[Rfam]
RNA: Small nucleolar RNA R12
RNA sequence: UGUUGAAUGAUGAUAAAAAAUCAAUCGGAUUCCCAUUGAUAUUUUCAUAAUGAGAUUAUAACCAGCUACUUCUGACAACA
Dot-bracket structure: (((((......................................................................)))))